[Rfam]
Rfam assigns this 89-nucleotide RNA from Mytilus galloprovincialis to the family "rpsL sRNA". Pairs were carried over by alignment from the consensus structure, which is taken from published work. Rfam 15.1 lists 52 matches to the family in 49 species. The source organism's lineage runs through Eukaryota, Metazoa, Eumetazoa, Spiralia and Mytilus.
RNA sequence: UUGGGAUUGCUUUUUGGGAGUUUUGGUCCCAACGAAUUAGGGCCAAAAGGGUCCAAAAUUAAACUUUGUUUGAUUUCAUCAAAAAUUGA
Numbered sequence: 001u002u003g004g005g006a007u008u009g010c011u012u013u014u015u016g017g018g019a020g021u022u023u024u025g026g027u028c029c030c031a032a033c034g035a036a037u038u039a040g041g042g043c044c045a046a047a048a049g050g051g052u053c054c055a056a057a058a059u060u061a062a063a064c065u066u067u068g069u070u071u072g073a074u075u076u077c078a079u080c081a082a083a084a085a086u087u088g089a
Stems, first nucleotide, its partner, number of pairs: 012084006018077003022073002024045006049071004